This 147-nucleotide RNA sequence from Trichonephila clavata belongs to the Rfam family "Wolbachia sRNA 46". The base pairs follow the family's consensus structure. The family has 3 seed sequences and 237 matches in Rfam 15.1.
RNA sequence: GUAACUUUCACCAAAAAAGAUGUCAUCCCAGUGCCCAGACACUGGGAUCCAGAAAACUUAAUUUUAAGUGAGUAUGCCAGGUGGUUGUAUAAUAAGAACUGGAUUCCAGUGUCAGCUACUUGCAUGACACCACCUGCUAUGCGAAUU
Numbered sequence: 001g002u003a004a005c006u007u008u009c010a011c012c013a014a015a016a017a018a019g020a021u022g023u024c025a026u027c028c029c030a031g032u033g034c035c036c037a038g039a040c041a042c043u044g045g046g047a048u049c050c051a052g053a054a055a056a057c058u059u060a061a062u063u064u065u066a067a068g069u070g071a072g073u074a075u076g077c078c079a080g081g082u083g084g085u086u087g088u089a090u091a092a093u094a095a096g097a098a099c100u101g102g103a104u105u106c107c108a109g110u111g112u113c114a115g116c117u118a119c120u121u122g123c124a125u126g127a128c129a130c131c132a133c134c135u136g137c138u139a140u141g142c143g144a145a146u147u
Stems, first nucleotide, its partner, number of pairs: 012141002015138001021129006028122001030120004035115001038113015
Taxonomically the source falls in Trichonephila (Eukaryota, Opisthokonta, Eumetazoa, Arachnida).